[Rfam]
RNA sequence: GGGCGCGUAGCUCAGCGGCAGAGCGCCUCGUUGACAUCGAGGAGGUCGGUGGUUCAAAUCCACCCGCGCCCA
Number, nucleotide and partner (000 for none) at each position: 001g071002g070003g069004c068005g067006c066007g065008u000009a000010g024011c023012u022013c021014a000015g000016c000017g000018g000019c000020a000021g013022a012023g011024c010025g000026c042027c041028u040029c039030g038031u000032u000033g000034a000035c000036a000037u000038c030039g029040a028041g027042g026043a000044g000045g000046u000047c000048g064049g063050u062051g061052g060053u000054u000055c000056a000057a000058a000059u000060c052061c051062a050063c049064c048065c007066g006067c005068g004069c003070c002071c001072a000
Background
Rfam assigns this 72-nucleotide sequence from Limimonas halophila to the family "tRNA". It scores 72 bits against the family's covariance model. Gene Ontology term of the family: triplet codon-amino acid adaptor activity. By type it is a transfer RNA. Taxonomically the source falls in Limimonas (Bacteria, Pseudomonadati, Alphaproteobacteria, Rhodovibrionaceae). On this family, see Hou, Trends Biochem Sci 1993: "The tertiary structure of tRNA and the development of the genetic code".